[Rfam]
RNA sequence: CAGUGGACGACCACUGUCGUAUUUAUGAGACCGGGACGACCCGG
Numbered sequence: 001c002a003g004u005g006g007a008c009g010a011c012c013a014c015u016g017u018c019g020u021a022u023u024u025a026u027g028a029g030a031c032c033g034g035g036a037c038g039a040c041c042c043g044g
Base pairs, nucleotide, nucleotide: 001016002015003014004013005012006011031044032043033042034041035040
Annotation:
A member of the RNA family "Guanidine-II riboswitch aptamer (mini-ykkC)" from Marinomonas piezotolerans, 44 nucleotides long. The organism belongs to Marinomonas, within Bacteria. Simpler in structure and has fewer highly conserved nucleotide positions than the ykkC-yxkD leader. Despite this each of its two stem-loop structures directly bind free guanidine. Therefore, mini-ykkC RNA motif represents a distinct class of guanidine-sensing RNAs. Its crystal structure was also determined.